[Rfam]
RNA sequence: GGUCGUGCGGGUUCCUGGCAUGGUGAUUUGUGAGCUCUGGUUAAAAUCACAUUGCCAGGGAUUACCACACAGCC
Numbered sequence: 001g002g003u004c005g006u007g008c009g010g011g012u013u014c015c016u017g018g019c020a021u022g023g024u025g026a027u028u029u030g031u032g033a034g035c036u037c038u039g040g041u042u043a044a045a046a047u048c049a050c051a052u053u054g055c056c057a058g059g060g061a062u063u064a065c066c067a068c069a070c071a072g073c074c
Base pairs, nucleotide, nucleotide: 001074002073005070006069009066010065011062012061013060014059015058016057017056018055019054020053023050024049025048026047027046028045029044
RNA: mir-23 microRNA precursor family
Organism: Anguilla anguilla